[Rfam]
RNA sequence: GAGUGUUAUUGUUCUUUCAGAAUUUGUCUAGCAGGUUUUCUGAUCUUCACUGGAAAGCUUUA
Numbered sequence: 001g002a003g004u005g006u007u008a009u010u011g012u013u014c015u016u017u018c019a020g021a022a023u024u025u026g027u028c029u030a031g032c033a034g035g036u037u038u039u040c041u042g043a044u045c046u047u048c049a050c051u052g053g054a055a056a057g058c059u060u061u062a
Stems, first nucleotide, its partner, number of pairs: 034059009044049001